[Rfam]
RNA sequence: GCGGAUGGCCGGAUGACCGCGGCGCCCUUUCGGGGCUGUCGAGGAAAGUCCGGGCUCCGGAAAGCAACGGUGCCGGGUAACGCCCGGGCGGGGCAACCCGACGGAAAGCGCCACAGAAAACAGACCACCCCGGACGUGUCCGGGGCCAGGGUGAAACGGUGGGGUAAGAGCCCACCGGGGGGCCGGCAACGGCGCCCGCAUGGCAAGCCCCACCGGGAGCAAUGCCGAAUAGGGAUCCUGCGGGCCGCAAGGCCCAGGGCCGCUUUCGCCCAAGGGUCCGGGUAGGCAGCACGAGCGCAUCGGCGACGAUGCGCCCAGAUGAAUGGUCAUCACCCGCCGCAAGGUGGGGACAGAACCCGGCUUACAGGCCAUCCGCGCGC
Numbered sequence: 001g002c003g004g005a006u007g008g009c010c011g012g013a014u015g016a017c018c019g020c021g022g023c024g025c026c027c028u029u030u031c032g033g034g035g036c037u038g039u040c041g042a043g044g045a046a047a048g049u050c051c052g053g054g055c056u057c058c059g060g061a062a063a064g065c066a067a068c069g070g071u072g073c074c075g076g077g078u079a080a081c082g083c084c085c086g087g088g089c090g091g092g093g094c095a096a097c098c099c100g101a102c103g104g105a106a107a108g109c110g111c112c113a114c115a116g117a118a119a120a121c122a123g124a125c126c127a128c129c130c131c132g133g134a135c136g137u138g139u140c141c142g143g144g145g146c147c148a149g150g151g152u153g154a155a156a157c158g159g160u161g162g163g164g165u166a167a168g169a170g171c172c173c174a175c176c177g178g179g180g181g182g183c184c185g186g187c188a189a190c191g192g193c194g195c196c197c198g199c200a201u202g203g204c205a206a207g208c209c210c211c212a213c214c215g216g217g218a219g220c221a222a223u224g225c226c227g228a229a230u231a232g233g234g235a236u237c238c239u240g241c242g243g244g245c246c247g248c249a250a251g252g253c254c255c256a257g258g259g260c261c262g263c264u265u266u267c268g269c270c271c272a273a274g275g276g277u278c279c280g281g282g283u284a285g286g287c288a289g290c291a292c293g294a295g296c297g298c299a300u301c302g303g304c305g306a307c308g309a310u311g312c313g314c315c316c317a318g319a320u321g322a323a324u325g326g327u328c329a330u331c332a333c334c335c336g337c338c339g340c341a342a343g344g345u346g347g348g349g350a351c352a353g354a355a356c357c358c359g360g361c362u363u364a365c366a367g368g369c370c371a372u373c374c375g376c377g378c379g380c
Stems, first nucleotide, its partner, number of pairs: 001376010011365001012331007020041005026035003046363003050360005055219004063266002068215005073087005088102001089100004103210002108208002110204003125150002128145007158176006177199001178197003182193004223288004233279006257271004295314008
Shown here is a 380-nucleotide RNA from Palleronia aestuarii, a member of the family "Bacterial RNase P class A". It is annotated as a ribozyme. The literature on the family includes a 1998 paper in Annu Rev Biochem by Frank and Pace, "Ribonuclease P: unity and diversity in a tRNA processing ribozyme".